[Rfam]
RNA sequence: UGACCGCCACAAUGAUCGUGGUUAAAAGGCCAUACGGACAGCCGGGUCAAAUGCCGA
Dot-bracket structure: ((((((((((.......)))))......................)))))........
Numbered sequence: 001u002g003a004c005c006g007c008c009a010c011a012a013u014g015a016u017c018g019u020g021g022u023u024a025a026a027a028g029g030c031c032a033u034a035c036g037g038a039c040a041g042c043c044g045g046g047u048c049a050a051a052u053g054c055c056g057a
Stems, first nucleotide, its partner, number of pairs: 001049005006022005